[Rfam]
RNA sequence: UGGCCCACGAUACGGAAUGCCCAUGAUGAACGGCCGCCGGGCCGGAUACCCUGACGGGGUGCAUCCCCGAUCGGAGGGGAGCGCAUAGCCGACAGCCGUCGCACCCAGGGAGUAGCCCCAUG
Numbered sequence: 001u002g003g004c005c006c007a008c009g010a011u012a013c014g015g016a017a018u019g020c021c022c023a024u025g026a027u028g029a030a031c032g033g034c035c036g037c038c039g040g041g042c043c044g045g046a047u048a049c050c051c052u053g054a055c056g057g058g059g060u061g062c063a064u065c066c067c068c069g070a071u072c073g074g075a076g077g078g079g080a081g082c083g084c085a086u087a088g089c090c091g092a093c094a095g096c097c098g099u100c101g102c103a104c105c106c107a108g109g110g111a112g113u114a115g116c117c118c119c120a121u122g
Base pairs, nucleotide, nucleotide: 060085061084062083065079066078067077068076088102089101091100092099093098
A member of the RNA family "Streptomyces-metH RNA" from Kitasatospora kifunensis, 122 nucleotides long. The base pairs follow the family's consensus structure, which is taken from published work. Rfam classes the family as a small RNA. NCBI's taxonomy places the organism under Bacteria, Actinomycetota, Actinomycetes, Kitasatosporales, Kitasatospora.